The family of this 100-nucleotide sequence from Enterobacillus tribolii is "t44 RNA". Taxonomically the source falls in Enterobacillus (Bacteria, Pseudomonadati, Pseudomonadota, Hafniaceae). The match comes from Rfam's covariance-model search (85 bits). For this family Rfam cites "Transcriptome analysis of Escherichia coli using high-density oligonucleotide probe arrays" (Tjaden et al., Nucleic Acids Res, 2002).
RNA sequence: UUUUUAUACAUUAAACAACACACACGUAUCGGCACAUAGGCCGGGGUGCCCUUCAGCGCAGGUUGCGGGGUCGGUUUUAUGGGAUACGUGGAGGCAUAAC
Numbered sequence: 001u002u003u004u005u006a007u008a009c010a011u012u013a014a015a016c017a018a019c020a021c022a023c024a025c026g027u028a029u030c031g032g033c034a035c036a037u038a039g040g041c042c043g044g045g046g047u048g049c050c051c052u053u054c055a056g057c058g059c060a061g062g063u064u065g066c067g068g069g070g071u072c073g074g075u076u077u078u079a080u081g082g083g084a085u086a087c088g089u090g091g092a093g094g095c096a097u098a099a100c
Stems, first nucleotide, its partner, number of pairs: 023090008035081005040075004048071005